[Rfam]
RNA sequence: ACAAACCUCGAGUUUGUGCGCGAAUCCAACCCCUCAAUCUUCUUUCAAAGGGGUGUUAGAUUCACGCACAAACUCGGGAUCUGUCU
Numbered sequence: 001a002c003a004a005a006c007c008u009c010g011a012g013u014u015u016g017u018g019c020g021c022g023a024a025u026c027c028a029a030c031c032c033c034u035c036a037a038u039c040u041u042c043u044u045u046c047a048a049a050g051g052g053g054u055g056u057u058a059g060a061u062u063c064a065c066g067c068a069c070a071a072a073c074u075c076g077g078g079a080u081c082u083g084u085c086u
Stems, first nucleotide, its partner, number of pairs: 001084003005080001007078001011074010022063005028057002
MIR403 microRNA precursor family: an 86-nucleotide sequence from Vitis vinifera. The organism belongs to Vitis, within Eukaryota.